Rfam assigns this 58-nucleotide RNA from Ziziphus jujuba to the family "Plastid-psbA-3 3UTR RNA". Rfam's curators write: Plastid psbA-3 is a non-coding RNA (ncRNA) present in plastids. The literature on the family includes a 2023 paper in Plant Commun by Richter et al., "Retrograde signaling in plants: A critical review focusing on the GUN pathway and beyond". A search with the family's covariance model found it, with a score of 59 bits. Its Rfam clan is "Plastid-psbA 3UTR RNA clan".
RNA sequence: AAAGGAGCAAUAACAAACUUCUUGCUAGAAUAAGAAAUUGAUUAUUGUUCCUUCAUUU
Numbered sequence: 001a002a003a004g005g006a007g008c009a010a011u012a013a014c015a016a017a018c019u020u021c022u023u024g025c026u027a028g029a030a031u032a033a034g035a036a037a038u039u040g041a042u043u044a045u046u047g048u049u050c051c052u053u054c055a056u057u058u
Stems, first nucleotide, its partner, number of pairs: 002053012014040001019036006